[Rfam]
RNA sequence: CUGCAUGAUGGAAACGGUUAAUUCUUCUUCCUUCCAAGGAGAAUGAGCAUUCCUUCAGUGCUAUAAAAUGAGGAGCUUUCCGAGCCCCUUUCCUUGAAGCACAGGUUGCGUGGUAGUAUGUUCCUCCAACAUGG
Numbered sequence: 001c002u003g004c005a006u007g008a009u010g011g012a013a014a015c016g017g018u019u020a021a022u023u024c025u026u027c028u029u030c031c032u033u034c035c036a037a038g039g040a041g042a043a044u045g046a047g048c049a050u051u052c053c054u055u056c057a058g059u060g061c062u063a064u065a066a067a068a069u070g071a072g073g074a075g076c077u078u079u080c081c082g083a084g085c086c087c088c089u090u091u092c093c094u095u096g097a098a099g100c101a102c103a104g105g106u107u108g109c110g111u112g113g114u115a116g117u118a119u120g121u122u123c124c125u126c127c128a129a130c131a132u133g134g
Base pairs, nucleotide, nucleotide: 003061004060005059006058021044022043023042024041025040026039027038072127073126074125075124084114085113088110089108092105093104094103
A member of the RNA family "Small nucleolar RNA U109" from Thamnophis sirtalis, 134 nucleotides long. Pairs were carried over by alignment from the consensus structure, which was predicted with WAR. The match comes from Rfam's covariance-model search (55 bits). Gene Ontology terms of the family: RNA processing and nucleolus.